The family of this 420-nucleotide RNA sequence from Pukyongiella litopenaei is "Bacterial RNase P class A". Rfam's curators write: Ribonuclease P (RNase P) is a ubiquitous endoribonuclease, found in archaea, bacteria and eukarya as well as chloroplasts and mitochondria.
[Rfam]
RNA sequence: GCGGAGGGCCGGACGGCCGCUUGGCCGGUUCGCCGGCCGGGAGGAAAGUCCGGACUCCCUGAAGCAGCGGUGCCGGGUAACGCCCGGGCGGGGCAACCCGACGGAGAGCGCCACAGAGAACAGACCGCCCCGGCAUGGCGGAGGUUCGCCUCCGGCAGGUCCGGGGCAAGGGUGAAACGGUGGAGUAAGAGCCCACCGCGCCCCCGGCAACGGGGGCGGCAUGGCAAGCCCCACCGGGAGCAAUGCCGAAUAGGACCCCCGCGCGGGACCGGUCCCUUCGGGGAAACCGCCGCUAGGCUCGCUUCAGCCGAGAGGGGUCGGGUUGGCAGCACGAGCCGCACAGCGAUGCGCGGCCCAGAUGAAUGGUCGUCGCCGGGGGCAACCCCGGAACAGAAUCCGGCUUACAGGCCCUCCGCGCAU
Numbered sequence: 001g002c003g004g005a006g007g008g009c010c011g012g013a014c015g016g017c018c019g020c021u022u023g024g025c026c027g028g029u030u031c032g033c034c035g036g037c038c039g040g041g042a043g044g045a046a047a048g049u050c051c052g053g054a055c056u057c058c059c060u061g062a063a064g065c066a067g068c069g070g071u072g073c074c075g076g077g078u079a080a081c082g083c084c085c086g087g088g089c090g091g092g093g094c095a096a097c098c099c100g101a102c103g104g105a106g107a108g109c110g111c112c113a114c115a116g117a118g119a120a121c122a123g124a125c126c127g128c129c130c131c132g133g134c135a136u137g138g139c140g141g142a143g144g145u146u147c148g149c150c151u152c153c154g155g156c157a158g159g160u161c162c163g164g165g166g167c168a169a170g171g172g173u174g175a176a177a178c179g180g181u182g183g184a185g186u187a188a189g190a191g192c193c194c195a196c197c198g199c200g201c202c203c204c205c206g207g208c209a210a211c212g213g214g215g216g217c218g219g220c221a222u223g224g225c226a227a228g229c230c231c232c233a234c235c236g237g238g239a240g241c242a243a244u245g246c247c248g249a250a251u252a253g254g255a256c257c258c259c260c261g262c263g264c265g266g267g268a269c270c271g272g273u274c275c276c277u278u279c280g281g282g283g284a285a286a287c288c289g290c291c292g293c294u295a296g297g298c299u300c301g302c303u304u305c306a307g308c309c310g311a312g313a314g315g316g317g318u319c320g321g322g323u324u325g326g327c328a329g330c331a332c333g334a335g336c337c338g339c340a341c342a343g344c345g346a347u348g349c350g351c352g353g354c355c356c357a358g359a360u361g362a363a364u365g366g367u368c369g370u371c372g373c374c375g376g377g378g379g380c381a382a383c384c385c386c387g388g389a390a391c392a393g394a395a396u397c398c399g400g401c402u403u404a405c406a407g408g409c410c411c412u413c414c415g416c417g418c419a420u
Stems, first nucleotide, its partner, number of pairs: 001416010011405001012371007020041009046403003050400005055240004064305001068236005073087005088102001089100004103231002108229002110225003125171002127167007179197005198220001199218008244328004254319006298312004335354005341348002

Lineage of the source: Bacteria > Pseudomonadota > Alphaproteobacteria > Paracoccaceae > Pukyongiella.